A member of the RNA family "Bacteroidete tryptophan peptide leader RNA" from Flagellimonas ruestringensis, 113 nucleotides long.
[Rfam]
RNA sequence: UCAUCCCUAUAUUUGAUGCAAUGAUUAACAGAAUAGCAAAUAACUGGUGGUGGAUAAACUUACGUCGAACGUCGUGAGCUAAGUCCCCAUUAUUAUCAUAUAAGAGGCUUGUC
Dot-bracket structure: ...................................(.(.((((..(..((.(....(.((((((.....)))...))).)...).))..)..))))..).)............
The organism belongs to Flagellimonas ruestringensis, within Bacteria.
Rfam links the family to the GO terms S-adenosylmethionine metabolic process and regulation of gene expression.
The match comes from Rfam's covariance-model search (70 bits).